The family of this 64-nucleotide RNA sequence from Cnephaeus nilssonii is "mir-9242 microRNA precursor family". The organism belongs to Cnephaeus, within Eukaryota. Pairs were carried over by alignment from the consensus structure, which was predicted with RNAalifold.
RNA sequence: GGCCUUUCUCUGUGGGGUGAUCGAUCGUGGGGCUCCGCGAUCAAUUGCUGCGCAGAGGGUGGCC
Numbered sequence: 001g002g003c004c005u006u007u008c009u010c011u012g013u014g015g016g017g018u019g020a021u022c023g024a025u026c027g028u029g030g031g032g033c034u035c036c037g038c039g040a041u042c043a044a045u046u047g048c049u050g051c052g053c054a055g056a057g058g059g060u061g062g063c064c
Base pairs, nucleotide, nucleotide: 001064002063003062004061006059007058008057009056010055011054012053013052014051016049017048018047019046020045021044023042024041025040026039027038028037029036030035